[Rfam]
RNA sequence: UAUUCAACUCUGCCUAUCUGGCCUGGUUGCACUCUCUGAGGAUAUAAAAAUCAGAAAUUGCUACCAGGUUGGAUGUGCUUGGUUGGGUC
Numbered sequence: 001u002a003u004u005c006a007a008c009u010c011u012g013c014c015u016a017u018c019u020g021g022c023c024u025g026g027u028u029g030c031a032c033u034c035u036c037u038g039a040g041g042a043u044a045u046a047a048a049a050a051u052c053a054g055a056a057a058u059u060g061c062u063a064c065c066a067g068g069u070u071g072g073a074u075g076u077g078c079u080u081g082g083u084u085g086g087g088u089c
Stems, first nucleotide, its partner, number of pairs: 003087007012078002015075007023067004029061003033057001035055003